[Rfam]
RNA: transfer-messenger RNA
Organism: Desulfovibrio desulfuricans
RNA sequence: ACGGGGACGUGGAAGCCGUAGCGGCAGGUCGAGGCGCCGCUGGCCUCGUAAAAAGCGGCACAAAAGUAAUUGCCAACAACGAUUACGACUACGCUUACGCUGCCUAAUAACAGCGAGGCAAUGACCGUUUAACGGUCGCGCCGAUCAGGGCCAUGCCUGAUAACCCUGAUUGGCGACACUUAUCAGGCUGGCGAAAACCGGCUCUCGCCGGGGUUUUUCGCGAGGAGUUUACCGGCGGGAUUGCUGCGUUGUGCCUGGUCAGGGGCCAACAGCGCGGUGAAAUACAUACUUGACCUAAACCUGUAGAUGCUUCGUGUGGAAUGUUCUCGGACGGGGGU
Numbered sequence: 001a002c003g004g005g006g007a008c009g010u011g012g013a014a015g016c017c018g019u020a021g022c023g024g025c026a027g028g029u030c031g032a033g034g035c036g037c038c039g040c041u042g043g044c045c046u047c048g049u050a051a052a053a054a055g056c057g058g059c060a061c062a063a064a065a066g067u068a069a070u071u072g073c074c075a076a077c078a079a080c081g082a083u084u085a086c087g088a089c090u091a092c093g094c095u096u097a098c099g100c101u102g103c104c105u106a107a108u109a110a111c112a113g114c115g116a117g118g119c120a121a122u123g124a125c126c127g128u129u130u131a132a133c134g135g136u137c138g139c140g141c142c143g144a145u146c147a148g149g150g151c152c153a154u155g156c157c158u159g160a161u162a163a164c165c166c167u168g169a170u171u172g173g174c175g176a177c178a179c180u181u182a183u184c185a186g187g188c189u190g191g192c193g194a195a196a197a198c199c200g201g202c203u204c205u206c207g208c209c210g211g212g213g214u215u216u217u218u219c220g221c222g223a224g225g226a227g228u229u230u231a232c233c234g235g236c237g238g239g240a241u242u243g244c245u246g247c248g249u250u251g252u253g254c255c256u257g258g259u260c261a262g263g264g265g266c267c268a269a270c271a272g273c274g275c276g277g278u279g280a281a282a283u284a285c286a287u288a289c290u291u292g293a294c295c296u297a298a299a300c301c302u303g304u305a306g307a308u309g310c311u312u313c314g315u316g317u318g319g320a321a322u323g324u325u326c327u328c329g330g331a332c333g334g335g336g337g338u
Stems, first nucleotide, its partner, number of pairs: 003328008015317002020311004025303005030048005036059006094118003098115005139175006146168004156187007188224002191221006203239003243278010253266003257295007